[Rfam]
RNA: mir-290 microRNA precursor family
Organism: Equus caballus
RNA sequence: GCGGGACUCAAAUGUGGAAGCACUCUUCGAACAUCGGGAUGGAAAGUGCUGCGACAUUUGAGUGUCGC
Numbered sequence: 001g002c003g004g005g006a007c008u009c010a011a012a013u014g015u016g017g018a019a020g021c022a023c024u025c026u027u028c029g030a031a032c033a034u035c036g037g038g039a040u041g042g043a044a045a046g047u048g049c050u051g052c053g054a055c056a057u058u059u060g061a062g063u064g065u066c067g068c
Stems, first nucleotide, its partner, number of pairs: 004065001006063007014055002017052001019050006026043003